[Rfam]
RNA sequence: GCAGACGGCCGGGCGGCCGCUCCCGACCGCGGCGAGGCCGUGGUGGGAGAGGAAAGUCCGGGCUCCACGGAAACACGGUGCCGGGUAACGCCCGGCGGAGGCGACUCCAGGGACAGUGCCACAGAAAGCAAACCGCCCACCGGCCCGAGCGGCUCGGCGGGUCAGGGUGAAAGGGUGCGGUAAGAGCGCACCGCCCGGCCGGUAACGGUCGGGGCACGGUAAACCCCACCGGGAGCAAGACCGAGAAGGAGCGACCGGGGCCGGCCUGAUGGCGCGGCCCGGCCCGGUUUCCGGGGUGUCGCUCGGGUAGGUCGCACGAGGCGGUCGGCAACGCCCGCCCCAGAUGAAUGGUCGCCGCCCCUGGGCCACCAGGGCGCACAGAACCCGGCUUACAGGCCGUCUGCCCAC
Numbered sequence: 001g002c003a004g005a006c007g008g009c010c011g012g013g014c015g016g017c018c019g020c021u022c023c024c025g026a027c028c029g030c031g032g033c034g035a036g037g038c039c040g041u042g043g044u045g046g047g048a049g050a051g052g053a054a055a056g057u058c059c060g061g062g063c064u065c066c067a068c069g070g071a072a073a074c075a076c077g078g079u080g081c082c083g084g085g086u087a088a089c090g091c092c093c094g095g096c097g098g099a100g101g102c103g104a105c106u107c108c109a110g111g112g113a114c115a116g117u118g119c120c121a122c123a124g125a126a127a128g129c130a131a132a133c134c135g136c137c138c139a140c141c142g143g144c145c146c147g148a149g150c151g152g153c154u155c156g157g158c159g160g161g162u163c164a165g166g167g168u169g170a171a172a173g174g175g176u177g178c179g180g181u182a183a184g185a186g187c188g189c190a191c192c193g194c195c196c197g198g199c200c201g202g203u204a205a206c207g208g209u210c211g212g213g214g215c216a217c218g219g220u221a222a223a224c225c226c227c228a229c230c231g232g233g234a235g236c237a238a239g240a241c242c243g244a245g246a247a248g249g250a251g252c253g254a255c256c257g258g259g260g261c262c263g264g265c266c267u268g269a270u271g272g273c274g275c276g277g278c279c280c281g282g283c284c285c286g287g288u289u290u291c292c293g294g295g296g297u298g299u300c301g302c303u304c305g306g307g308u309a310g311g312u313c314g315c316a317c318g319a320g321g322c323g324g325u326c327g328g329c330a331a332c333g334c335c336c337g338c339c340c341c342a343g344a345u346g347a348a349u350g351g352u353c354g355c356c357g358c359c360c361c362u363g364g365g366c367c368a369c370c371a372g373g374g375c376g377c378a379c380a381g382a383a384c385c386c387g388g389c390u391u392a393c394a395g396g397c398c399g400u401c402u403g404c405c406c407a408c
Stems, first nucleotide, its partner, number of pairs: 001404010011393001012356007020049006027042001054391003058388005063235004072290002076231005081095005096110001097108004111226002116224002118220003133166002135162004140157004174192006193215001194213008239313004249304006283295004320339005326333002

Background: Shown here is a 408-nucleotide RNA from Rhodothalassium salexigens, a member of the family "Bacterial RNase P class A". A search with the family's covariance model found it, with a score of 263 bits. Ribonuclease P (RNase P) is a ubiquitous endoribonuclease, found in archaea, bacteria and eukarya as well as chloroplasts and mitochondria. The organism belongs to Rhodothalassium salexigens, within Bacteria. By type it is a ribozyme.